[Rfam]
RNA sequence: GAAACGCGAACCAAGCAGAACAGCCUCAUGGCUGUUUCGUGAGUCUUGGAGCCUCCCCGCCGCAAGGCGAGGGAGUGCA
Numbered sequence: 001g002a003a004a005c006g007c008g009a010a011c012c013a014a015g016c017a018g019a020a021c022a023g024c025c026u027c028a029u030g031g032c033u034g035u036u037u038c039g040u041g042a043g044u045c046u047u048g049g050a051g052c053c054u055c056c057c058c059g060c061c062g063c064a065a066g067g068c069g070a071g072g073g074a075g076u077g078c079a
Stems, first nucleotide, its partner, number of pairs: 011049005018038001021034004053075005059068003